A member of the RNA family "Small nucleolar RNA SNORD69" from Carassius auratus, 77 nucleotides long. The family has 11 seed sequences and 524 matches in Rfam 15.1. Its family is annotated with RNA processing and nucleolus in the Gene Ontology. The source organism's lineage runs through Eukaryota, Teleostei, Osteoglossocephalai, Cypriniformes and Carassius. By type it is a C/D-box small nucleolar RNA. Rfam describes the family as follows. snoRNA HBII-210 belongs to the C/D family of snoRNAs. It is the human orthologue of the mouse MBII-210 and is predicted to guide the 2'O-ribose methylation of large 28S rRNA on residue G4464. A search with the family's covariance model found it, with a score of 39 bits.

[Rfam]
RNA sequence: AAUUUGAAGCAUGAUGAACUGUAUUGGACUGACCAAAGCAUGAAGUCUUCAAUCAAUCCAACACUGAGCUUCAAAUC
Numbered sequence: 001a002a003u004u005u006g007a008a009g010c011a012u013g014a015u016g017a018a019c020u021g022u023a024u025u026g027g028a029c030u031g032a033c034c035a036a037a038g039c040a041u042g043a044a045g046u047c048u049u050c051a052a053u054c055a056a057u058c059c060a061a062c063a064c065u066g067a068g069c070u071u072c073a074a075a076u077c
Stems, first nucleotide, its partner, number of pairs: 002076009